c-di-AMP riboswitch aptamer (ydaO/yuaA leader): a 145-nucleotide sequence from Pseudobacteroides cellulosolvens. NCBI's taxonomy places the organism under Bacteria, Eubacteriales, Oscillospiraceae, Pseudobacteroides, Pseudobacteroides cellulosolvens.
[Rfam]
Nucleotides: 145
Stems, first nucleotide, its partner, number of pairs: 011130004018036006037125006047058002059110003067085001069083002088104004
Number, partner (000 for none) and nucleotide at each position: 001000a002000c003000c004000u005000g006000a007000u008000a009000g010000u011130u012129g013128c014127c015000u016000a017000a018036u019035c020034c021033u022032u023031a024000a025000a026000u027000a028000a029000u030000c031023u032022a033021a034020g035019g036018a037125a038124c039123g040122g041121g042120g043000g044000a045000u046000g047058c048057a049000u050000c051000u052000u053000u054000u055000c056000u057048u058047g059110g060109g061108g062000u063000u064000a065000a066000u067085c068000a069083g070082c071000u072000u073000u074000a075000a076000u077000u078000u079000a080000a081000a082070g083069c084000a085067g086000u087000a088104g089103g090102g091101a092000u093000a094000c095000c096000a097000c098000u099000c100000a101091u102090c103089c104088c105000g106000a107000a108061c109060c110059c111000g112000u113000c114000a115000g116000c117000u118000a119000a120042c121041c122040u123039c124038g125037u126000a127014g128013g129012c130011a131000u132000u133000g134000a135000g136000a137000g138000g139000a140000g141000g142000a143000a144000a145000u
About the family: This family represents a conserved RNA structure found upstream of the ydaO and yuaA genes in Bacillus subtilis and related genes in other bacteria.